[Rfam]
RNA sequence: AGUUACUAGGCAGUGUAGUUAGCUGAUUGCCAGAACUAACAAUUACUAGCCACACAGCCAGAUAAAA
Dot-bracket structure: ..(((...((..((((.(((((.((((((..........))))))))))).))))..))...)))..

mir-34 microRNA precursor family: a 67-nucleotide sequence from Podiceps cristatus.
The literature on the family includes a 2003 paper in Dev Cell by Houbaviy et al., "Embryonic stem cell-specific MicroRNAs".
Gene Ontology terms of the family: RISC complex and miRNA-mediated post-transcriptional gene silencing.
Taxonomically the source falls in Podiceps (Eukaryota, Vertebrata, Dinosauria, Saurischia).
Human mir-34a was discovered computationally and later experimentally verified. The mature sequence is excised from the 5' arm of the hairpin.
The match comes from Rfam's covariance-model search (54 bits).
Pairs were carried over by alignment from the consensus structure, which was predicted with RNAalifold.